[Rfam]
RNA sequence: CCAUGUAAAUUAUCAUGUUAUGGUAAUGAUGUUGCGGUGAAUCCCGUUAGCACGGGGCAUAAAUGGUUAACCUGCUUAUCAUGUGUGAUGCGAGUCAUUGUAUAACCAUUCAGUGGCUCACCGGGUAGCGUCGGCACUGCAACAUCUACUCUACUCAUUACUUAACUCAAGGCUACUUCGGUAGCCUUUUCUUUUCCAC
Numbered sequence: 001c002c003a004u005g006u007a008a009a010u011u012a013u014c015a016u017g018u019u020a021u022g023g024u025a026a027u028g029a030u031g032u033u034g035c036g037g038u039g040a041a042u043c044c045c046g047u048u049a050g051c052a053c054g055g056g057g058c059a060u061a062a063a064u065g066g067u068u069a070a071c072c073u074g075c076u077u078a079u080c081a082u083g084u085g086u087g088a089u090g091c092g093a094g095u096c097a098u099u100g101u102a103u104a105a106c107c108a109u110u111c112a113g114u115g116g117c118u119c120a121c122c123g124g125g126u127a128g129c130g131u132c133g134g135c136a137c138u139g140c141a142a143c144a145u146c147u148a149c150u151c152u153a154c155u156c157a158u159u160a161c162u163u164a165a166c167u168c169a170a171g172g173c174u175a176c177u178u179c180g181g182u183a184g185c186c187u188u189u190u191c192u193u194u195u196c197c198a199c
Stems, first nucleotide, its partner, number of pairs: 016148002031140002034138001037137003045057001047055002063082003085091002092119004098113003121134004169188006
RNA: Gammaproteobacterial sRNA STnc100